[Rfam]
RNA sequence: GCCAAUGAUGAUAGAAUCCAAUAUUUGGAGGUGUUGUGGAGCCAAGACCCUGUGUUUCAGGGAGAACCUACUUGGUGAAGCUACAUUCAAAUGACAUAAAUGGAUUCAGCUGAGGC
Numbered sequence: 001g002c003c004a005a006u007g008a009u010g011a012u013a014g015a016a017u018c019c020a021a022u023a024u025u026u027g028g029a030g031g032u033g034u035u036g037u038g039g040a041g042c043c044a045a046g047a048c049c050c051u052g053u054g055u056u057u058c059a060g061g062g063a064g065a066a067c068c069u070a071c072u073u074g075g076u077g078a079a080g081c082u083a084c085a086u087u088c089a090a091a092u093g094a095c096a097u098a099a100a101u102g103g104a105u106u107c108a109g110c111u112g113a114g115g116c
Base pairs, nucleotide, nucleotide: 001116002115003114048062049061050060051059052058
Dot-bracket structure: (((............................................(((((.....)))))...................................................)))
The family of this 116-nucleotide RNA sequence from Vitis vinifera is "Small nucleolar RNA Z278". The match comes from Rfam's covariance-model search (70 bits). Pairs were carried over by alignment from the consensus structure, which was predicted with PFOLD. From the family's description: snoZ278 is a C/D box small nucleolar RNA. Its methylation guide targets have not been reported. The family has 7 seed sequences and 1,130 matches in Rfam 15.1.